[Rfam]
RNA: mir-278 microRNA precursor family
Organism: Microctonus hyperodae
Nucleotides: 076
Base pairs, nucleotide, nucleotide: 003074004073005072006071007070009068010067011066012065013064014063015062017059018058019057020056022055023054025052026051027050028049029048
Number, partner (000 for none) and nucleotide at each position: 001000u002000a003074u004073g005072c006071a007070g008000c009068c010067g011066g012065a013064u014063g015062a016000u017059g018058u019057c020056u021000u022055c023054a024000u025052c026051g027050g028049u029048c030000g031000u032000u033000u034000u035000u036000u037000a038000u039000u040000u041000a042000a043000c044000u045000u046000c047000c048029g049028g050027u051026c052025g053000g054023u055022g056020g057019g058018a059017c060000u061000u062015u063014c064013g065012u066011c067010c068009g069000u070007u071006u072005g073004u074003a075000a076000a